[Rfam]
RNA sequence: GUUCUUAAAUCGCUGAAACCAAAUAGGUACGGGGGAACCAUUUUCCUGGAUUGUUUUAAUCCUUGGGAUGAAUCCUUUUAGGUAGGGCUACUCAAAGGUCCGAAUCCGACAGCUAACCUCGUAAGCGUUAAUGAGAAGGAAG
Numbered sequence: 001g002u003u004c005u006u007a008a009a010u011c012g013c014u015g016a017a018a019c020c021a022a023a024u025a026g027g028u029a030c031g032g033g034g035g036a037a038c039c040a041u042u043u044u045c046c047u048g049g050a051u052u053g054u055u056u057u058a059a060u061c062c063u064u065g066g067g068a069u070g071a072a073u074c075c076u077u078u079u080a081g082g083u084a085g086g087g088c089u090a091c092u093c094a095a096a097g098g099u100c101c102g103a104a105u106c107c108g109a110c111a112g113c114u115a116a117c118c119u120c121g122u123a124a125g126c127g128u129u130a131a132u133g134a135g136a137a138g139g140a141a142g
Base pairs, nucleotide, nucleotide: 011127012126013125014124018028019027020026029122030121031120032119033118034117039065040064066107067106068105074082075081076080085101086100087099088098
c-di-AMP riboswitch aptamer (ydaO/yuaA leader): a 142-nucleotide sequence from Bacillus sp. 7884-1.
Pairs were carried over by alignment from the consensus structure.
Gene Ontology terms of the family: cyclic-di-AMP binding and regulation of gene expression.
The organism belongs to Bacillus, within Bacteria.
For this family Rfam cites "New RNA motifs suggest an expanded scope for riboswitches in bacterial genetic control" (Barrick et al., Proc Natl Acad Sci U S A, 2004).